[Rfam]
RNA sequence: AACAACUGAGUGUGUUUCUCAUGAAUCUCUAAGCAAGAUUGUUGAUUCAUCCAUUCAUGGUCUUCAAAGUUAUUUGAUUGUU
Numbered sequence: 001a002a003c004a005a006c007u008g009a010g011u012g013u014g015u016u017u018c019u020c021a022u023g024a025a026u027c028u029c030u031a032a033g034c035a036a037g038a039u040u041g042u043u044g045a046u047u048c049a050u051c052c053a054u055u056c057a058u059g060g061u062c063u064u065c066a067a068a069g070u071u072a073u074u075u076g077a078u079u080g081u082u
Stems, first nucleotide, its partner, number of pairs: 001082005
RNA: Small nucleolar RNA R160